This 84-nucleotide RNA from Lupinus albus belongs to the Rfam family "Small nucleolar RNA Z122". Rfam classes the family as a C/D-box small nucleolar RNA. The match comes from Rfam's covariance-model search (61 bits). A reference for the family is Chen et al. (2003), "The high diversity of snoRNAs in plants: identification and comparative study of 120 snoRNA genes from Oryza sativa", Nucleic Acids Res. Rfam 15.1 lists 822 matches to the family in 247 species. The organism belongs to Lupinus, within Eukaryota.
RNA sequence: UUUGGGAAAUGAUGCUAUAAAAUUAAACAGAAGCAAUAACUCUGUUGAAUUAAUUUUUGAUUUGCACGUCAGUCUGAUCCCAAG
Numbered sequence: 001u002u003u004g005g006g007a008a009a010u011g012a013u014g015c016u017a018u019a020a021a022a023u024u025a026a027a028c029a030g031a032a033g034c035a036a037u038a039a040c041u042c043u044g045u046u047g048a049a050u051u052a053a054u055u056u057u058u059g060a061u062u063u064g065c066a067c068g069u070c071a072g073u074c075u076g077a078u079c080c081c082a083a084g
Stems, first nucleotide, its partner, number of pairs: 001084007